[Rfam]
RNA: Guanidine-II riboswitch aptamer (mini-ykkC)
RNA sequence: AAGCGGGGACGACCCUGCCACUCGACGACAUCCGGGGACGGCCCC
Numbered sequence: 001a002a003g004c005g006g007g008g009a010c011g012a013c014c015c016u017g018c019c020a021c022u023c024g025a026c027g028a029c030a031u032c033c034g035g036g037g038a039c040g041g042c043c044c045c
Stems, first nucleotide, its partner, number of pairs: 003018006034045004